[Rfam]
Rfam assigns this 53-nucleotide sequence from Tetracentron sinense to the family "Plastid-atpF group II-D1 intron". Rfam 15.1 lists 1,372 matches to the family in 227 species. It scores 58 bits against the family's covariance model. The family's consensus secondary structure was predicted with LocARNA. Rfam describes the family as follows. Plastid atpF is a non-coding RNA (ncRNA) recognised in plastids. A reference for the family is Richter et al. (2023), "Retrograde signaling in plants: A critical review focusing on the GUN pathway and beyond", Plant Commun.

RNA sequence: ACUUUGUUUUUCGAUAUAGAAUACUCGUAUUGAUAAAAUAAUUUGAAUCAUUU
Numbered sequence: 001a002c003u004u005u006g007u008u009u010u011u012c013g014a015u016a017u018a019g020a021a022u023a024c025u026c027g028u029a030u031u032g033a034u035a036a037a038a039u040a041a042u043u044u045g046a047a048u049c050a051u052u053u
Stems, first nucleotide, its partner, number of pairs: 011033007